Rfam assigns this 105-nucleotide RNA sequence from Colocasia esculenta to the family "Small nucleolar RNA Z152/R70/R12/".
RNA sequence: AGGGCUAUGAUGAUUUAAAGGUGUGUGGGCAGAGGGGGGCCAUUCAGAUGGCCCGCCGUGAGCCCUUUCCACCGAUCUAAACGACUUCUCCUUCCACUGAGCCUU
Numbered sequence: 001a002g003g004g005c006u007a008u009g010a011u012g013a014u015u016u017a018a019a020g021g022u023g024u025g026u027g028g029g030c031a032g033a034g035g036g037g038g039g040c041c042a043u044u045c046a047g048a049u050g051g052c053c054c055g056c057c058g059u060g061a062g063c064c065c066u067u068u069c070c071a072c073c074g075a076u077c078u079a080a081a082c083g084a085c086u087u088c089u090c091c092u093u094c095c096a097c098u099g100a101g102c103c104u105u
Stems, first nucleotide, its partner, number of pairs: 001105005